[Rfam]
RNA sequence: GUGCAUAUGAUGGAAAAACUUUUAAGCUGAGACUUGUGAUGUCUCCUCAAAGGAACCACUGAUGCAC
Numbered sequence: 001g002u003g004c005a006u007a008u009g010a011u012g013g014a015a016a017a018a019c020u021u022u023u024a025a026g027c028u029g030a031g032a033c034u035u036g037u038g039a040u041g042u043c044u045c046c047u048c049a050a051a052g053g054a055a056c057c058a059c060u061g062a063u064g065c066a067c
Base pairs, nucleotide, nucleotide: 001067002066003065004064005063
Small nucleolar RNA SNORD42: a 67-nucleotide RNA sequence from Pipistrellus kuhlii.
The match comes from Rfam's covariance-model search (68 bits).
snoRNA U42 is found in intron 3 of the ribosomal protein L23a (RPL23a) gene in humans and is also present in mice.